Nucleotides: 116
Base pairs, nucleotide, nucleotide: 023106024105025104026103027102028101029100030099035097036096037095038094039093041091042090043089048088049087050086051085052084
Number, partner (000 for none) and nucleotide at each position: 001000c002000g003000a004000u005000a006000u007000u008000u009000a010000c011000u012000u013000a014000a015000a016000a017000u018000c019000c020000a021000c022000a023106c024105g025104c026103a027102g028101a029100u030099c031000g032000a033000c034000a035097c036096a037095u038094u039093u040000g041091c042090c043089g044000g045000g046000g047000u048088g049087c050086u051085c052084c053000a054000c055000c056000a057000g058000a059000a060000a061000g062000a063000c064000a065000c066000u067000c068000u069000u070000u071000u072000a073000a074000g075000a076000g077000a078000c079000u080000g081000g082000u083000u084052g085051g086050g087049g088048u089043c090042g091041g092000g093039a094038a095037a096036u097035g098000g099030g100029a101028u102027u103026u104025g105024c106023g107000g108000a109000g110000g111000c112000u113000u114000a115000a116000c